[Rfam]
RNA sequence: UUGGAGAACAAGACUUCAAGUAGCAUACUUGAAGGAUUUGAAGACUUCACCUUGUAUACUUGCAGUAUUUGAUGACUUCAACU
Numbered sequence: 001u002u003g004g005a006g007a008a009c010a011a012g013a014c015u016u017c018a019a020g021u022a023g024c025a026u027a028c029u030u031g032a033a034g035g036a037u038u039u040g041a042a043g044a045c046u047u048c049a050c051c052u053u054g055u056a057u058a059c060u061u062g063c064a065g066u067a068u069u070u071g072a073u074g075a076c077u078u079c080a081a082c083u
Stems, first nucleotide, its partner, number of pairs: 001081006010069002014065002017062002023055003030049005
Rfam assigns this 83-nucleotide RNA from Solanum lycopersicum to the family "MIR8024 microRNA precursor family". Pairs were carried over by alignment from the consensus structure, which was predicted with RNAalifold. The match comes from Rfam's covariance-model search (62 bits). NCBI's taxonomy places the organism under Eukaryota, Embryophyta, Mesangiospermae, Solanaceae, Solanum subgen. Lycopersicon.